Small nucleolar RNA psi18S-1377: a 138-nucleotide RNA from Bactrocera dorsalis. The base pairs follow the family's consensus structure, which was predicted with RNAalifold. The family has 15 seed sequences and 113 matches in Rfam 15.1. Its family is annotated with RNA processing and nucleolus in the Gene Ontology. Rfam classes the family as an H/ACA-box small nucleolar RNA. About the family: psi18S-1377 is a member of the H/ACA class of snoRNA. This family is responsible for guiding the modification of uridines 1377 and 1279 to pseudouridine in Drosophila 18S rRNA. Lineage of the source: Eukaryota > Altocrustacea > Neoptera > Brachycera > Bactrocera dorsalis complex.
[Rfam]
RNA sequence: UCGUCCCUGUGUUAUUUGCUGAUUGAUUACCCAAAAUCAGUGAUUGUCAAACGGGACGCAAAUAAAAUUCUUAAGUCUCGUUAUAGUCUUCAUUUAGCUUUUACGGCAAGUAGACUUCUCCAUACUUUAGAAACAAAC
Numbered sequence: 001u002c003g004u005c006c007c008u009g010u011g012u013u014a015u016u017u018g019c020u021g022a023u024u025g026a027u028u029a030c031c032c033a034a035a036a037u038c039a040g041u042g043a044u045u046g047u048c049a050a051a052c053g054g055g056a057c058g059c060a061a062a063u064a065a066a067a068u069u070c071u072u073a074a075g076u077c078u079c080g081u082u083a084u085a086g087u088c089u090u091c092a093u094u095u096a097g098c099u100u101u102u103a104c105g106g107c108a109a110g111u112a113g114a115c116u117u118c119u120c121c122a123u124a125c126u127u128u129a130g131a132a133a134c135a136a137a138c
Stems, first nucleotide, its partner, number of pairs: 002058006010049002016043007085116005093110003